Shown here is a 95-nucleotide sequence, a member of the family "S10-Clostridia ribosomal protein leader". It is one of the family's seed sequences.
RNA sequence: AUAGAGUGUUGAUACGGAAGGUUGCUGAUGGCCGAAUUGAGCGGCUUGAUGGUUUUUCCGAGGAGCGAUGUCCAGUUCAAGAAACCGGGCGACAA
Number, nucleotide and partner (000 for none) at each position: 001a000002u000003a000004g000005a000006g000007u000008g000009u000010u000011g000012a000013u000014a000015c060016g059017g000018a057019a056020g055021g054022u000023u000024g000025c051026u000027g000028a050029u049030g000031g000032c000033c000034g000035a000036a000037u000038u000039g000040a000041g000042c000043g000044g000045c000046u000047u000048g000049a029050u028051g025052g000053u000054u021055u020056u019057u018058c000059c016060g015061a000062g000063g000064a000065g000066c000067g000068a000069u094070g093071u092072c091073c000074a000075g090076u089077u088078c087079a000080a000081g000082a000083a000084a000085c000086c000087g078088g077089g076090c075091g072092a071093c070094a069095a000
It is annotated as a cis-regulatory leader.
A reference for the family is Eckert and Weinberg (2020), "Discovery of 20 novel ribosomal leader candidates in bacteria and archaea", BMC Microbiol.